[Rfam]
RNA sequence: AUCUCGAAGGGUUUGAUCCUGGCUCAGAAUGAACGUUGGCGGCGUGGAUUAGGCAUGCAAGUCGAACGGGCCGCAAGGCCAGUGGCGAAAGGGUGAGUAAGGCGACGGCAACCUACCCCGAGGUUGGGCAUAGCCGGGGGAAACUCCGGGUAAUUCCCAGCGAUGUGCGUCUCAGGCAUCUGAGACGCACCAAAGGUGCAAUUCCGCCUCGGGACGGGCCGUCGUGGUAUUAGGUAGUUGGUGGGGUCACGGCCCACCAAGCCGACGAUGCCUACCGGGCGUGCGAGCGUGGCCCGGCACACUGGGACUGAGACACUGCCCAGACUCCUACGGGAGGCUGCAGUCGAGAAUCUUCGGCAAUGGGCGCAAGCCUGACCGAGCGACGCCGCGUGGAGGAAGACGGCCCUUGGGUUGUAAACUCCUGUCGAGGGGAAGGAAGGGUCGGCGAAGAGCCGAUCUUGACCGCUCCCUGGAGGAAGCACGGGCUAAGUUCGUGCCAGCAGCCGCGGUAAGACGAACCGUGCAAACGUUAUUCGGAAUCACUG
Numbered sequence: 001a002u003c004u005c006g007a008a009g010g011g012u013u014u015g016a017u018c019c020u021g022g023c024u025c026a027g028a029a030u031g032a033a034c035g036u037u038g039g040c041g042g043c044g045u046g047g048a049u050u051a052g053g054c055a056u057g058c059a060a061g062u063c064g065a066a067c068g069g070g071c072c073g074c075a076a077g078g079c080c081a082g083u084g085g086c087g088a089a090a091g092g093g094u095g096a097g098u099a100a101g102g103c104g105a106c107g108g109c110a111a112c113c114u115a116c117c118c119c120g121a122g123g124u125u126g127g128g129c130a131u132a133g134c135c136g137g138g139g140g141a142a143a144c145u146c147c148g149g150g151u152a153a154u155u156c157c158c159a160g161c162g163a164u165g166u167g168c169g170u171c172u173c174a175g176g177c178a179u180c181u182g183a184g185a186c187g188c189a190c191c192a193a194a195g196g197u198g199c200a201a202u203u204c205c206g207c208c209u210c211g212g213g214a215c216g217g218g219c220c221g222u223c224g225u226g227g228u229a230u231u232a233g234g235u236a237g238u239u240g241g242u243g244g245g246g247u248c249a250c251g252g253c254c255c256a257c258c259a260a261g262c263c264g265a266c267g268a269u270g271c272c273u274a275c276c277g278g279g280c281g282u283g284c285g286a287g288c289g290u291g292g293c294c295c296g297g298c299a300c301a302c303u304g305g306g307a308c309u310g311a312g313a314c315a316c317u318g319c320c321c322a323g324a325c326u327c328c329u330a331c332g333g334g335a336g337g338c339u340g341c342a343g344u345c346g347a348g349a350a351u352c353u354u355c356g357g358c359a360a361u362g363g364g365c366g367c368a369a370g371c372c373u374g375a376c377c378g379a380g381c382g383a384c385g386c387c388g389c390g391u392g393g394a395g396g397a398a399g400a401c402g403g404c405c406c407u408u409g410g411g412u413u414g415u416a417a418a419c420u421c422c423u424g425u426c427g428a429g430g431g432g433a434a435g436g437a438a439g440g441g442u443c444g445g446c447g448a449a450g451a452g453c454c455g456a457u458c459u460u461g462a463c464c465g466c467u468c469c470c471u472g473g474a475g476g477a478a479g480c481a482c483g484g485g486c487u488a489a490g491u492u493c494g495u496g497c498c499a500g501c502a503g504c505c506g507c508g509g510u511a512a513g514a515c516g517a518a519c520c521g522u523g524c525a526a527a528c529g530u531u532a533u534u535c536g537g538a539a540u541c542a543c544u545g
Stems, first nucleotide, its partner, number of pairs: 009025005027535004032531006039389006045382002052345003056342003061086003066083002069080004093300003102225008112217002117213007125159004134149006165190007173182003195205002226272003233263003238260008275297004279290004302323005325336004353379001355378003361374005392422004402413004426476001428471005436463001442456003479524005490519005500507002